A member of the RNA family "gabT RNA" from Pseudomonas asplenii, 61 nucleotides long.
RNA sequence: UGUGGCCGGAACGCUGUGCCAGUCGAUCAUCGUAUGCUGGUGCAGUGCUUUCUCUGCCGCG
Numbered sequence: 001u002g003u004g005g006c007c008g009g010a011a012c013g014c015u016g017u018g019c020c021a022g023u024c025g026a027u028c029a030u031c032g033u034a035u036g037c038u039g040g041u042g043c044a045g046u047g048c049u050u051u052c053u054c055u056g057c058c059g060c061g
Base pairs, nucleotide, nucleotide: 001061002060003059004058005057012047013046014045015044016043017042018041019040020039021038022037023036024032025031

Pairs were carried over by alignment from the consensus structure, which is taken from published work.